[Rfam]
Nucleotides: 099
Stems, first nucleotide, its partner, number of pairs: 002089008012052006019045001021043001024040001026038004057080002065073003
Number, partner (000 for none) and nucleotide at each position: 001000c002089g003088g004087c005086a006085a007084g008083a009082u010000g011000u012052g013051u014050g015049u016048u017047g018000u019045a020000c021043c022000g023000g024040u025000a026038c027037g028036g029035g030000c031000u032000a033000c034000g035029c036028c037027c038026g039000c040024a041000c042000c043021g044000c045019u046000c047017c048016a049015a050014c051013a052012c053000c054000g055000c056000c057080c058079c059000u060000u061000a062000c063000u064000c065073g066072c067071c068000u069000g070000c071067g072066g073065c074000u075000c076000g077000a078000c079058g080057g081000c082009a083008u084007c085006u086005u087004g088003c089002u090000c091000u092000g093000c094000g095000a096000g097000g098000c099000u

A member of the RNA family "traJ-II RNA" from Bordetella genomosp. 9, 99 nucleotides long. The base pairs follow the family's consensus structure, which is taken from published work. The family has 47 seed sequences and 174 matches in Rfam 15.1. Lineage of the source: Bacteria > Pseudomonadota > Betaproteobacteria > Burkholderiales > Bordetella. The family's RNA type in Rfam is cis-regulatory element.